[Rfam]
Notes: The record is a 44-nucleotide RNA from Halalkalibacter wakoensis, which matches "PreQ1 (pre queuosine) riboswitch aptamer" in Rfam. The literature on the family includes a 2004 paper in J Biol Chem by Reader et al., "Identification of four genes necessary for biosynthesis of the modified nucleoside queuosine". Rfam's curators write: This family is a bacterial riboswitch that binds to the metabolite preQ1, an intermediate in the biosynthesis of the modified nucleoside queuosine from GTP. One example of this riboswitch is located in the leader of the Bacillus subtilis ykvJKLM (queCDEF) operon which encodes four genes necessary for queuosine production. PreQ1 binding to the riboswitch aptamer is thought to induce premature transcription termination within the leader to down-regulate expression of these genes. The family has 43 seed sequences and 873 matches in Rfam 15.1. Its family is annotated with queuosine biosynthetic process in the Gene Ontology.
Nucleotides: 044
Base pairs, nucleotide, nucleotide: 006026007025008024009023010022016036
Number, partner (000 for none) and nucleotide at each position: 001000a002000g003000a004000c005000a006026a007025g008024a009023g010022g011000u012000u013000c014000g015000c016036a017000a018000a019000c020000u021000c022010c023009c024008u025007c026006u027000a028000u029000a030000a031000a032000a033000a034000a035000c036016u037000a038000a039000g040000g041000u042000g043000u044000u